[Rfam]
RNA: mir-202 microRNA precursor family
Organism: Bos taurus
RNA sequence: CUGUUCCUUUUUCCUAUGCAUAUACUUCUUUGAGGGUCUGGCCUAAAGAGGUGUAGGGCAUGGGAAAAUGGGGCCC
Number, nucleotide and partner (000 for none) at each position: 001c000002u000003g000004u000005u000006c000007c000008u000009u000010u067011u066012u065013c064014c063015u062016a061017u060018g059019c058020a000021u055022a054023u053024a000025c051026u050027u049028c048029u047030u046031u045032g044033a000034g000035g000036g000037u000038c000039u000040g000041g000042c000043c000044u032045a031046a030047a029048g028049a027050g026051g025052u000053g023054u022055a021056g000057g000058g019059c018060a017061u016062g015063g014064g013065a012066a011067a010068a000069u000070g000071g000072g000073g000074c000075c000076c000